[Rfam]
RNA sequence: UGACUUUUAAAAGCGCCAGAGCUGAACGACCGGACGAUAUAAAGUUCAGCUGACGAGGUGGAGGUUUAUCGAGAAUUCGGCGGAUGCCUCCCGGUUGACAUGUAGGUCACGACCGUAAGUUUACUCGAAAACAUAGGGGCAACCCUUUGCACAAACGAGUGUAACAAUAGACC
Numbered sequence: 001u002g003a004c005u006u007u008u009a010a011a012a013g014c015g016c017c018a019g020a021g022c023u024g025a026a027c028g029a030c031c032g033g034a035c036g037a038u039a040u041a042a043a044g045u046u047c048a049g050c051u052g053a054c055g056a057g058g059u060g061g062a063g064g065u066u067u068a069u070c071g072a073g074a075a076u077u078c079g080g081c082g083g084a085u086g087c088c089u090c091c092c093g094g095u096u097g098a099c100a101u102g103u104a105g106g107u108c109a110c111g112a113c114c115g116u117a118a119g120u121u122u123a124c125u126c127g128a129a130a131a132c133a134u135a136g137g138g139g140c141a142a143c144c145c146u147u148u149g150c151a152c153a154a155a156c157g158a159g160u161g162u163a164a165c166a167a168u169a170g171a172c173c
Base pairs, nucleotide, nucleotide: 020051021050022049023048024047025046026045027044060091061090062089063088064087069080070079071078072077092115093114094113095112096111097110120163122161123160124159125158132149133148135146136145137144138143
Shown here is a 173-nucleotide sequence from Bacillus salinus, a member of the family "glmS glucosamine-6-phosphate activated ribozyme aptamer". A search with the family's covariance model found it, with a score of 115 bits. Rfam describes the family as follows. This entry contains a glucosamine-6-phosphate activated ribozyme that is found in the mRNA for GlmS. GlmS is an enzyme that uses fructose-6-phosphate and glutamine to generate glucosamine-6-phosphate.